The family of this 107-nucleotide sequence from Miscanthus lutarioriparius is "MIR5565 microRNA precursor family".
RNA sequence: GCAUGUGUAUUCAUCUCAAUCCACAUGUGUUGGAGUGGAAUGGAAUGGAACUUAGUUAAUUCCACUUCAAUCCACUUCAACACAUGUGGAUUGGGAUGAAUACACAU
Numbered sequence: 001g002c003a004u005g006u007g008u009a010u011u012c013a014u015c016u017c018a019a020u021c022c023a024c025a026u027g028u029g030u031u032g033g034a035g036u037g038g039a040a041u042g043g044a045a046u047g048g049a050a051c052u053u054a055g056u057u058a059a060u061u062c063c064a065c066u067u068c069a070a071u072c073c074a075c076u077u078c079a080a081c082a083c084a085u086g087u088g089g090a091u092u093g094g095g096a097u098g099a100a101u102a103c104a105c106a107u
Stems, first nucleotide, its partner, number of pairs: 004106011016094017035075005041069003046064002

Overview: Gene Ontology terms of the family: miRNA-mediated post-transcriptional gene silencing and RISC complex.